[Rfam]
RNA: Mammalian CPEB3 ribozyme
Organism: Alligator mississippiensis
RNA sequence: AGAGGUCACAAGUUUGAAGCCAUAGCAGAAGCACUCACAAUGCAGCCCUGUUAGAUUCCAACAAAUCCGUGAAUUCUGCU
Number, nucleotide and partner (000 for none) at each position: 001a000002g000003a000004g000005g000006u000007c000008a000009c000010a000011a000012g000013u000014u000015u000016g048017a000018a000019g046020c045021c000022a000023u000024a080025g079026c078027a077028g076029a075030a074031g043032c042033a041034c000035u000036c000037a000038c000039a000040a000041u033042g032043c031044a000045g020046c019047c000048c016049u000050g000051u000052u069053a000054g067055a066056u065057u064058c000059c000060a000061a000062c000063a000064a057065a056066u055067c054068c000069g052070u000071g000072a000073a000074u030075u029076c028077u027078g026079c025080u024